The record is a 76-nucleotide RNA from Paraliobacillus ryukyuensis, which matches "Glycine riboswitch aptamer" in Rfam.
RNA sequence: GGAGCAGCUUCUGGAGAGAUCGUUCAAACGACGCCGAAGGAUUCAUAAUCUCAGGCAACAGGACAGAAGGCAUGGC
Numbered sequence: 001g002g003a004g005c006a007g008c009u010u011c012u013g014g015a016g017a018g019a020u021c022g023u024u025c026a027a028a029c030g031a032c033g034c035c036g037a038a039g040g041a042u043u044c045a046u047a048a049u050c051u052c053a054g055g056c057a058a059c060a061g062g063a064c065a066g067a068a069g070g071c072a073u074g075g076c
Stems, first nucleotide, its partner, number of pairs: 008069006020031004033056003036052002040050003